[Rfam]
RNA sequence: AAAACUGUUACCUGCUCCAUCGCACGUAACAGGAACCGGGGCUAAAGGUAACGAAGCCCCG
Numbered sequence: 001a002a003a004a005c006u007g008u009u010a011c012c013u014g015c016u017c018c019a020u021c022g023c024a025c026g027u028a029a030c031a032g033g034a035a036c037c038g039g040g041g042c043u044a045a046a047g048g049u050a051a052c053g054a055a056g057c058c059c060c061g
Stems, first nucleotide, its partner, number of pairs: 005032007037061007047052001